Background: Rfam assigns this 74-nucleotide RNA sequence from Sphenodon punctatus to the family "Small nucleolar RNA SNORD59".
RNA sequence: CCUUCCAUGAUGAUCCGUCAAGAUGACUUUCGUUCUUCUGACUUUGCUGAAGCCAUCUCAAUGCACUGAGAAGG
Number, nucleotide and partner (000 for none) at each position: 001c074002c073003u072004u000005c070006c000007a000008u000009g000010a000011u000012g000013a000014u000015c000016c000017g000018u000019c000020a000021a000022g000023a000024u000025g000026a000027c000028u000029u000030u000031c000032g000033u000034u000035c000036u000037u000038c000039u000040g000041a000042c000043u000044u000045u000046g000047c000048u000049g000050a000051a000052g000053c000054c000055a000056u000057c000058u000059c000060a000061a000062u000063g000064c000065a000066c000067u000068g000069a000070g005071a000072a003073g002074g001
The source organism's lineage runs through Eukaryota, Opisthokonta, Chordata, Dipnotetrapodomorpha and Sphenodon. The family is grouped with related families in Rfam's "SNORD59 clan". A reference for the family is Galardi et al. (2002), "Purified box C/D snoRNPs are able to reproduce site-specific 2'-O-methylation of target RNA in vitro", Mol Cell Biol. The family's consensus secondary structure was predicted with ILM. Rfam classes the family as a C/D-box small nucleolar RNA. Gene Ontology terms of the family: nucleolus and RNA processing.